The record is a 56-nucleotide RNA from Mesorhizobium sp. ORS 3428, which matches "sul1 RNA" in Rfam.

[Rfam]
RNA sequence: AUCGGACCCGGUGGAAAUCCGGGUGGCGCUUCCGGCCGCCAAUCCGCCGGACCAAC
Numbered sequence: 001a002u003c004g005g006a007c008c009c010g011g012u013g014g015a016a017a018u019c020c021g022g023g024u025g026g027c028g029c030u031u032c033c034g035g036c037c038g039c040c041a042a043u044c045c046g047c048c049g050g051a052c053c054a055a056c
Base pairs, nucleotide, nucleotide: 006024007023008022009021010020011019012017031051032050033049034048035047036046
It is annotated as a riboswitch.
It scores 69 bits against the family's covariance model.
The family has 54 seed sequences and 519 matches in Rfam 15.1.
The base pairs follow the family's consensus structure, which is taken from published work.